[Rfam]
Nucleotides: 070
Stems, first nucleotide, its partner, number of pairs: 002069002006065004010060005016054007024046004
Number, partner (000 for none) and nucleotide at each position: 001000g002069g003068a004000u005000c006065c007064a008063u009062c010060u011059u012058a013057c014056c015000c016054g017053a018052c019051a020050g021049u022048g023000c024046u025045g026044g027043a028000u029000u030000g031000u032000a033000c034000a035000a036000c037000c038000g039000u040000u041000g042000c043027u044026c045025u046024a047000a048022c049021a050020c051019u052018g053017u054016c055000u056014g057013g058012u059011a060010a061000c062009g063008a064007u065006g066000u067000u068003u069002c070000c

A member of the RNA family "mir-8/mir-141/mir-200 microRNA precursor family" from Xiphophorus maculatus, 70 nucleotides long. NCBI's taxonomy places the organism under Eukaryota, Actinopterygii, Euteleosteomorpha, Poeciliinae, Xiphophorus. Pairs were carried over by alignment from the consensus structure, which was predicted with RNAalifold.